[Rfam]
RNA sequence: GCGCAUUCCAUUGGGGAGUAGCCUGCUUCCGUCCCCGGAAGUUCCCGUAUCAACACACUCGGCGCGCACGUCUCCAGCGCCGUGGUACGGGCAGCCUUUUAGGUUGGCAAGACCUUUGGUAUGCCUGCGCGCCGUGACCGGGCCGCGCGGGCGUACCUUUCGUUUGCGCCCGGCCGAAAGC
Numbered sequence: 001g002c003g004c005a006u007u008c009c010a011u012u013g014g015g016g017a018g019u020a021g022c023c024u025g026c027u028u029c030c031g032u033c034c035c036c037g038g039a040a041g042u043u044c045c046c047g048u049a050u051c052a053a054c055a056c057a058c059u060c061g062g063c064g065c066g067c068a069c070g071u072c073u074c075c076a077g078c079g080c081c082g083u084g085g086u087a088c089g090g091g092c093a094g095c096c097u098u099u100u101a102g103g104u105u106g107g108c109a110a111g112a113c114c115u116u117u118g119g120u121a122u123g124c125c126u127g128c129g130c131g132c133c134g135u136g137a138c139c140g141g142g143c144c145g146c147g148c149g150g151g152c153g154u155a156c157c158u159u160u161c162g163u164u165u166g167c168g169c170c171c172g173g174c175c176g177a178a179a180g181c
Base pairs, nucleotide, nucleotide: 026041027040028039044091045090046089047088048087049086050085051084052083060082061081062080063079064078096180097179098178099177
Rfam assigns this 181-nucleotide sequence from Massilia forsythiae to the family "Manganese Mn2+ riboswitch aptamer (yybP-ykoY)".
About the family: This RNA was originally discovered in E. coli during a large scale screen and was named SraF. The family was later found to exist upstream of related families of protein genes in many bacteria, including the the yybP and ykoK genes in B. subtilis.
A search with the family's covariance model found it, with a score of 48 bits.
The base pairs follow the family's consensus structure.